[Rfam]
RNA sequence: GAGGCGGCGGUGGAGCUCCCUUUGAUUCAAAGAGAGGUGGGGAAGAAGGUGAAAUGAAGUGCUGCGAGUUCAUGCAGGCCUGUGGGGUGCCAUUGCUUUUCGCACCUUUCCAAAGGAUUGCAUGCGCUCGGAGCUCCUCUUGCCUUCUCCUUUCCUUGGUUGGAUUGAAGGGAGCUCCCCUCCCCUUAUUU
Number, nucleotide and partner (000 for none) at each position: 001g000002a000003g000004g000005c000006g000007g000008c000009g000010g000011u000012g000013g177014a176015g175016c174017u173018c172019c171020c170021u000022u000023u167024g166025a165026u164027u163028c162029a161030a000031a000032g000033a000034g000035a000036g154037g000038u000039g000040g000041g000042g000043a000044a000045g000046a000047a000048g000049g000050u000051g000052a000053a000054a000055u000056g000057a000058a000059g000060u000061g000062c133063u132064g000065c130066g129067a128068g000069u000070u000071c124072a123073u122074g121075c000076a000077g000078g000079c116080c000081u000082g000083u000084g000085g000086g000087g000088u000089g000090c000091c000092a000093u000094u000095g000096c000097u000098u000099u000100u000101c000102g000103c000104a000105c000106c000107u000108u000109u000110c000111c000112a000113a000114a000115g000116g079117a000118u000119u000120g000121c074122a073123u072124g071125c000126g000127c000128u067129c066130g065131g000132a063133g062134c000135u000136c000137c000138u000139c000140u000141u000142g000143c000144c000145u000146u000147c000148u000149c000150c000151u000152u000153u000154c036155c000156u000157u000158g000159g000160u000161u029162g028163g027164a026165u025166u024167g023168a000169a000170g020171g019172g018173a017174g016175c015176u014177c013178c000179c000180c000181u000182c000183c000184c000185c000186u000187u000188a000189u000190u000191u000

A member of the RNA family "MIR159 microRNA precursor family" from Momordica charantia, 191 nucleotides long. Gene Ontology terms of the family: RISC complex and miRNA-mediated post-transcriptional gene silencing. Taxonomically the source falls in Momordica (Eukaryota, Spermatophyta, Mesangiospermae, Momordiceae). For this family Rfam cites "A diverse and evolutionarily fluid set of microRNAs in Arabidopsis thaliana" (Rajagopalan et al., Genes Dev, 2006).